[Rfam]
Rfam assigns this 126-nucleotide RNA sequence from Rhododendron williamsianum to the family "MIR394 microRNA precursor family". It scores 70 bits against the family's covariance model. The family's consensus secondary structure was predicted with WAR. NCBI's taxonomy places the organism under Eukaryota, Embryophyta, asterids, Ericaceae, Rhododendron.
RNA sequence: UAUAAAGAGUUCACUGGCAUUCUGUCCACCUCCCUCCUCUCUCUCUCUCUCUCUCCUCUUUCUCUCUCUCCUGACGCAUAUGUGGAGGAGGUGGAGGUGGGCAUACUGCCAACUGAGCUUUGUAGG
Numbered sequence: 001u002a003u004a005a006a007g008a009g010u011u012c013a014c015u016g017g018c019a020u021u022c023u024g025u026c027c028a029c030c031u032c033c034c035u036c037c038u039c040u041c042u043c044u045c046u047c048u049c050u051c052u053c054u055c056c057u058c059u060u061u062c063u064c065u066c067u068c069u070c071c072u073g074a075c076g077c078a079u080a081u082g083u084g085g086a087g088g089a090g091g092u093g094g095a096g097g098u099g100g101g102c103a104u105a106c107u108g109c110c111a112a113c114u115g116a117g118c119u120u121u122g123u124a125g126g
Base pairs, nucleotide, nucleotide: 011116015111016110017109018108019107023103024102025101026100027099028098029097030096031095032094033093